[Rfam]
RNA: Y RNA
Organism: Pan troglodytes
RNA sequence: GGCUGGCCCAAUGAUAGUGGGUUAUCAGAACUUAUCAACAUUAGUGUUGCUAAAGUUGGUAUACAACCCCCCACUGCGAAAUUUGGCUGGCUUUUA
Numbered sequence: 001g002g003c004u005g006g007c008c009c010a011a012u013g014a015u016a017g018u019g020g021g022u023u024a025u026c027a028g029a030a031c032u033u034a035u036c037a038a039c040a041u042u043a044g045u046g047u048u049g050c051u052a053a054a055g056u057u058g059g060u061a062u063a064c065a066a067c068c069c070c071c072c073a074c075u076g077c078g079a080a081a082u083u084u085g086g087c088u089g090g091c092u093u094u095u096a
Stems, first nucleotide, its partner, number of pairs: 001092008010084002015079001016075006033061003037057002
Dot-bracket structure: ((((((((.((...(((((((...........(((.((.................)).)))........))))))...)...))))))))))....